This 317-nucleotide RNA from Thermofilum pendens belongs to the Rfam family "Archaeal signal recognition particle RNA". The literature on the family includes a 2002 paper in Curr Opin Struct Biol by Wild et al., "Towards the structure of the mammalian signal recognition particle". It is annotated as a non-coding RNA gene. The source organism's lineage runs through Archaea, Thermoprotei, Thermofilales, Thermofilaceae and Thermofilum pendens. The base pairs follow the family's consensus structure, which is taken from published work.
RNA sequence: CGGCGGGAAAGCCCCGGGGGGCUAGCCCUCCCCUGUAACCACAAACGGGCUUAGGGUGGGGGGCGUCAACCUCCGGGGGCGCCCGGCCUUCCCUAUGGGUGCCCGGGUCGCCAGAUGAUGCCCGUGCCCACGGGACGCCUCGUCCGUGCACGGCUCCUCGUAGGAGGAGGCCGAGCACGGUAGAGGCCGAACCGGGUUAGGCCCGGGAGGGAGCGGCCCUAAGGCCUCCGAGGCGUGUUCGUGGAUUCGCGGGCGGAUGUAGCGGCCCGGGAGAGCCCAUGGGGUGCGGGCCGGGCCACCCUGGAGGGAUGCCGCCG
Numbered sequence: 001c002g003g004c005g006g007g008a009a010a011g012c013c014c015c016g017g018g019g020g021g022c023u024a025g026c027c028c029u030c031c032c033c034u035g036u037a038a039c040c041a042c043a044a045a046c047g048g049g050c051u052u053a054g055g056g057u058g059g060g061g062g063g064c065g066u067c068a069a070c071c072u073c074c075g076g077g078g079g080c081g082c083c084c085g086g087c088c089u090u091c092c093c094u095a096u097g098g099g100u101g102c103c104c105g106g107g108u109c110g111c112c113a114g115a116u117g118a119u120g121c122c123c124g125u126g127c128c129c130a131c132g133g134g135a136c137g138c139c140u141c142g143u144c145c146g147u148g149c150a151c152g153g154c155u156c157c158u159c160g161u162a163g164g165a166g167g168a169g170g171c172c173g174a175g176c177a178c179g180g181u182a183g184a185g186g187c188c189g190a191a192c193c194g195g196g197u198u199a200g201g202c203c204c205g206g207g208a209g210g211g212a213g214c215g216g217c218c219c220u221a222a223g224g225c226c227u228c229c230g231a232g233g234c235g236u237g238u239u240c241g242u243g244g245a246u247u248c249g250c251g252g253g254c255g256g257a258u259g260u261a262g263c264g265g266c267c268c269g270g271g272a273g274a275g276c277c278c279a280u281g282g283g284g285u286g287c288g289g290g291c292c293g294g295g296c297c298a299c300c301c302u303g304g305a306g307g308g309a310u311g312c313c314g315c316c317g
Stems, first nucleotide, its partner, number of pairs: 001317006008310001011064005016034006039059004070307009081296004085291001087289001089286001091284010102271010113260001115258002119255007128244007135236008144180006151173003154169006184227005194219004202211003